[Rfam]
RNA sequence: AUCGCCGCUGCGGGAGAGACCGGCUUCAUUGCCGGCGCCGAAGGAGCAACCGCCCCGGAAACUCUCAGGCAAACGGACCGCGCGGCGCGA
Numbered sequence: 001a002u003c004g005c006c007g008c009u010g011c012g013g014g015a016g017a018g019a020c021c022g023g024c025u026u027c028a029u030u031g032c033c034g035g036c037g038c039c040g041a042a043g044g045a046g047c048a049a050c051c052g053c054c055c056c057g058g059a060a061a062c063u064c065u066c067a068g069g070c071a072a073a074c075g076g077a078c079c080g081c082g083c084g085g086c087g088c089g090a
Base pairs, nucleotide, nucleotide: 006085009082010081011080012079013078020035021034022033023032037070038069039068040066041065044064045063046062050058051057
The record is a 90-nucleotide RNA from Aureimonas pseudogalii, which matches "Glycine riboswitch aptamer" in Rfam.
Taxonomically the source falls in Aureimonas (Bacteria, Pseudomonadati, Hyphomicrobiales, Aurantimonadaceae).
Pairs were carried over by alignment from the consensus structure.